[Rfam]
RNA sequence: GGGAGGAACAACCCCAGUGGUGGGGCCAGCUCUGGAGACCUGGAGUCAGCUCCCGCAGUAACUCUGGAGCUCUCAGUCUGCAGGGCCUGGAGGCUCUGGGGCGGG
Number, nucleotide and partner (000 for none) at each position: 001g000002g097003g096004a095005g094006g000007a000008a000009c089010a088011a000012c085013c084014c083015c000016a000017g000018u000019g078020g077021u076022g000023g074024g073025g072026c000027c000028a071029g070030c069031u068032c067033u066034g065035g064036a063037g000038a000039c000040c058041u057042g056043g000044a000045g000046u000047c000048a000049g000050c000051u000052c000053c000054c000055g000056c042057a041058g040059u000060a000061a000062c000063u036064c035065u034066g033067g032068a031069g030070c029071u028072c025073u024074c023075a000076g021077u020078c019079u000080g000081c000082a000083g014084g013085g012086c000087c000088u010089g009090g000091a000092g000093g000094c005095u004096c003097u002098g000099g000100g000101g000102c000103g000104g000105g000
Description:
Shown here is a 105-nucleotide sequence from Vulpes vulpes, a member of the family "mir-8834 microRNA precursor family". Its family is annotated with RISC complex and miRNA-mediated post-transcriptional gene silencing in the Gene Ontology. Rfam 15.1 lists 13,926 matches to the family in 17 species.